[Rfam]
Nucleotides: 073
Stems, first nucleotide, its partner, number of pairs: 013041001016038003021073004026068002028035002045062006
Number, partner (000 for none) and nucleotide at each position: 001000g002000g003000u004000u005000g006000c007000u008000a009000g010000u011000u012000u013041g014000a015000g016038g017037c018036c019000a020000c021073a022072g023071c024070a025000a026068a027067a028035g029034u030000g031000c032000u033000c034029a035028u036018g037017g038016u039000g040000c041013c042000u043000g044000u045062c046061a047060g048059a049058u050057u051000c052000c053000a054000a055000c056000a057050a058049a059048u060047c061046u062045g063000u064000g065000a066000a067027u068026u069000c070024u071023g072022c073021u

Background: Mammalian CPEB3 ribozyme: a 73-nucleotide sequence from Alligator sinensis. The mammalian CPEB3 ribozyme is a self cleaving RNA located in the second intron of the CPEB3 gene which belongs to a family of genes regulating messenger RNA polyadenylation. This ribozyme is highly conserved and found only in mammals. The CPEB3 ribozyme is structurally and biochemically related to the human hepatitis delta virus (HDV) ribozyme and the HDV ribozyme is proposed to have arisen from the human transcriptome. There is currently only one other known self cleaving ribozyme in mammals, the CoTC motif. The base pairs follow the family's consensus structure, which is taken from published work. A search with the family's covariance model found it, with a score of 41 bits.